[Rfam]
RNA sequence: AACGUAUUGAAAGGAGGUGAUCCAGUGUCUCAUUGUCACAAGCCGAGGUCUCUGGAGACCGCCGGCCGGAUCUACACCUCUUGCGGUGUUCGUCUCGCCUGAACGGUUUCCCGUCGAUUUCGGUUCGACAAUGGAAGGGCUGCCCACCGGGCGGCCCU
Numbered sequence: 001a002a003c004g005u006a007u008u009g010a011a012a013g014g015a016g017g018u019g020a021u022c023c024a025g026u027g028u029c030u031c032a033u034u035g036u037c038a039c040a041a042g043c044c045g046a047g048g049u050c051u052c053u054g055g056a057g058a059c060c061g062c063c064g065g066c067c068g069g070a071u072c073u074a075c076a077c078c079u080c081u082u083g084c085g086g087u088g089u090u091c092g093u094c095u096c097g098c099c100u101g102a103a104c105g106g107u108u109u110c111c112c113g114u115c116g117a118u119u120u121c122g123g124u125u126c127g128a129c130a131a132u133g134g135a136a137g138g139g140c141u142g143c144c145c146a147c148c149g150g151g152c153g154g155c156c157c158u
Base pairs, nucleotide, nucleotide: 016023017022031133032132033131034130035129036128037127044064045063047060048059049058050057051056065071072106073105075101083093084092085091111123112122113121136158137157138156139155140154141153142152143151144150145149
Dot-bracket structure: ...............((....)).......(((((((......((.(((((....)))))..))(.....)((.(.......(((.....))).......)...))....(((.......)))...)))))))..((((((((((...))))))))))